RNA: msiK RNA
RNA sequence: AGAACACCAUCUUUCCAACGGAUCGUCCGGCACGUACCUGCCGGGAAAGAAAGUGAGAA
Dot-bracket structure: .........((((((...........((((((......)))))))))))).........